[Rfam]
RNA sequence: UUUAAGUGCAGUUAUGGGUUUCUAUGUCCAACGUUUGCCCAUCCGUUUUAUUUCAAAAAUUUAUGAAAAACUAAAAAAAAUAUGUCACGCAUGAAGUAAUAUUCAUAUUUUAUCAUCUAAUAACAAUAAAAAUACUAAUCAUACAAAAAUUUUUAAAUAAGACGAAUGAUCAAAUGUUGGACAUAGAAACCCAUAACUGCACUUAAA
Numbered sequence: 001u002u003u004a005a006g007u008g009c010a011g012u013u014a015u016g017g018g019u020u021u022c023u024a025u026g027u028c029c030a031a032c033g034u035u036u037g038c039c040c041a042u043c044c045g046u047u048u049u050a051u052u053u054c055a056a057a058a059a060u061u062u063a064u065g066a067a068a069a070a071c072u073a074a075a076a077a078a079a080a081u082a083u084g085u086c087a088c089g090c091a092u093g094a095a096g097u098a099a100u101a102u103u104c105a106u107a108u109u110u111u112a113u114c115a116u117c118u119a120a121u122a123a124c125a126a127u128a129a130a131a132a133u134a135c136u137a138a139u140c141a142u143a144c145a146a147a148a149a150u151u152u153u154u155a156a157a158u159a160a161g162a163c164g165a166a167u168g169a170u171c172a173a174a175u176g177u178u179g180g181a182c183a184u185a186g187a188a189a190c191c192c193a194u195a196a197c198u199g200c201a202c203u204u205a206a207a
Stems, first nucleotide, its partner, number of pairs: 027181006034174004040168003044164010
RNA: MIR812 microRNA precursor family
Organism: Oryza meridionalis